RNA: mir-190 microRNA precursor family
Organism: Leptotrombidium deliense
RNA sequence: AGGAUUUUGAGAUAUGUUUGAUAUUCUUGGUUGUGAAGCUUAUAAUCAACCAAGAAUCAGACAUAUACCCAAGAUUAU
Numbered sequence: 001a002g003g004a005u006u007u008u009g010a011g012a013u014a015u016g017u018u019u020g021a022u023a024u025u026c027u028u029g030g031u032u033g034u035g036a037a038g039c040u041u042a043u044a045a046u047c048a049a050c051c052a053a054g055a056a057u058c059a060g061a062c063a064u065a066u067a068c069c070c071a072a073g074a075u076u077a078u
Stems, first nucleotide, its partner, number of pairs: 005074005012066011024054002029051005